This 155-nucleotide RNA from Populus tomentosa belongs to the Rfam family "MIR2912 microRNA precursor family". Rfam links the family to the GO terms RISC complex and miRNA-mediated post-transcriptional gene silencing.

RNA sequence: UCUAGAACUCGAGAUAUGGGCUGAAUAAUGAACAAUGUCUAGGCUUUAGGACAGAUUCAGACUUCUCCGUUGUUGCUAUAAUUUGGACAUGAAAAUGACCUUUUUAAAUCUUAGACUCCCACAAAAGUUGUAGGCCUAUGUCUUACCUUUCCAUC
Numbered sequence: 001u002c003u004a005g006a007a008c009u010c011g012a013g014a015u016a017u018g019g020g021c022u023g024a025a026u027a028a029u030g031a032a033c034a035a036u037g038u039c040u041a042g043g044c045u046u047u048a049g050g051a052c053a054g055a056u057u058c059a060g061a062c063u064u065c066u067c068c069g070u071u072g073u074u075g076c077u078a079u080a081a082u083u084u085g086g087a088c089a090u091g092a093a094a095a096u097g098a099c100c101u102u103u104u105u106a107a108a109u110c111u112u113a114g115a116c117u118c119c120c121a122c123a124a125a126a127g128u129u130g131u132a133g134g135c136c137u138a139u140g141u142c143u144u145a146c147c148u149u150u151c152c153a154u155c
Base pairs, nucleotide, nucleotide: 003153005151006150007149009145011144012143013142014141015140016139017138018137019136020135021133022132023131025129027128029126036121037120042118043117045115046114048112049111050110051109054105055104060099063097072088073087074086
Dot-bracket structure: ..(.(((.(.(((((((((((((.(.(.(......((....((.((.((((..((....(..(........(((...........)))........).)....))...)))).)).)).))....).)).))).)))))))))))...))).)..